RNA: MIR6152 microRNA precursor family
Organism: Nicotiana attenuata
RNA sequence: UAGACAGAUUUUUGUAUUCGACUAUAUUCAUGGCGUGAAACAGGGGAUUACAGCUGUUUUUAAACGGAAACUGAAUCAAUUAACAUAAUAGACUCCU
Dot-bracket structure: ..((....((.((((.((.((.(..(((((...((((((((((..........)))))))...))).....))))).).)))).)))).))..))..